[Rfam]
Source information
This 114-nucleotide RNA from Alloacidobacterium dinghuense belongs to the Rfam family "SAM riboswitch aptamer (S box leader)".
RNA sequence: AUUUCAUGCAGAGUGGCUGAGGGACGGGCCCUGUGACGCCACGACAACCGGCUCAAGCAAUUUGAGACAUCGGUGUCAACUCUCGCUCACCUUCAGUGGUGGGGUACAUGAGAU
Numbered sequence: 001a002u003u004u005c006a007u008g009c010a011g012a013g014u015g016g017c018u019g020a021g022g023g024a025c026g027g028g029c030c031c032u033g034u035g036a037c038g039c040c041a042c043g044a045c046a047a048c049c050g051g052c053u054c055a056a057g058c059a060a061u062u063u064g065a066g067a068c069a070u071c072g073g074u075g076u077c078a079a080c081u082c083u084c085g086c087u088c089a090c091c092u093u094c095a096g097u098g099g100u101g102g103g104g105u106a107c108a109u110g111a112g113a114u
Stems, first nucleotide, its partner, number of pairs: 001114008013042005021031003025085004043077004048073002050068001052066004081106001086103006